[Rfam]
A member of the RNA family "RAGATH-18 RNA", 67 nucleotides long.
RNA sequence: CCCUCUGAGCGUCACAUCAAACGAAAGUAGUCGCAGUAUGACAAAAUCGGACGCGUUGAACAGGGAA
Numbered sequence: 001c002c003c004u005c006u007g008a009g010c011g012u013c014a015c016a017u018c019a020a021a022c023g024a025a026a027g028u029a030g031u032c033g034c035a036g037u038a039u040g041a042c043a044a045a046a047u048c049g050g051a052c053g054c055g056u057u058g059a060a061c062a063g064g065g066a067a
Stems, first nucleotide, its partner, number of pairs: 001065004009054005022049003030042003
Overview:
Pairs were carried over by alignment from the consensus structure, which is taken from published work. Rfam's curators put it in the seed alignment.